[Rfam]
RNA sequence: AUGCGAUGGGGUCAGAGUAGUCUAAUAAGACUACUCUGACCCCUGGUGUGAAUUCAGGCAUUAAAAAACCCGCACUUAGCGGGUUUUUUGAU
Numbered sequence: 001a002u003g004c005g006a007u008g009g010g011g012u013c014a015g016a017g018u019a020g021u022c023u024a025a026u027a028a029g030a031c032u033a034c035u036c037u038g039a040c041c042c043c044u045g046g047u048g049u050g051a052a053u054u055c056a057g058g059c060a061u062u063a064a065a066a067a068a069c070c071c072g073c074a075c076u077u078a079g080c081g082g083g084u085u086u087u088u089u090g091a092u
Base pairs, nucleotide, nucleotide: 009043010042011041014037015036016035017034018033020031021030022029023028067085068084069083070082071081072080073079
Notes: Tryptophan operon leader: a 92-nucleotide sequence from Marinobacterium sp. LSUCC0821. Rfam describes the family as follows. At least 6 amino acid operons are known to be regulated by attenuation. A search with the family's covariance model found it, with a score of 42 bits. Lineage of the source: Bacteria > Pseudomonadota > Gammaproteobacteria > Oceanospirillales > Marinobacterium. Pairs were carried over by alignment from the consensus structure, which is taken from published work. The literature on the family includes a 1982 paper in Annu Rev Genet by Kolter and Yanofsky, "Attenuation in amino acid biosynthetic operons".